[Rfam]
Nucleotides: 099
Base pairs, nucleotide, nucleotide: 001099002098003097004096005095006094007093008092013043016042017041018040022033023032024031027077028076029075030074044069045068046067047066049065050064052061053060054059073091078088079087080086081085
Number, partner (000 for none) and nucleotide at each position: 001099u002098u003097c004096u005095u006094a007093u008092c009000a010000a011000g012000a013043g014000u015000a016042g017041g018040u019000g020000g021000a022033g023032g024031g025000a026000a027077u028076a029075a030074g031024c032023c033022c034000u035000g036000u037000g038000a039000a040018g041017c042016c043013c044069g045068g046067c047066a048000a049065c050064c051000g052061g053060c054059u055000a056000u057000a058000a059054a060053g061052u062000a063000c064050g065049g066047u067046g068045c069044u070000a071000a072000a073091u074030c075029u076028u077027a078088c079087a080086g081085c082000a083000a084000u085081g086080c087079u088078g089000a090000g091073a092008g093007a094006u095005a096004a097003g098002a099001g
A member of the RNA family "SAM riboswitch aptamer (S box leader)" from Priestia filamentosa, 99 nucleotides long. A search with the family's covariance model found it, with a score of 74 bits.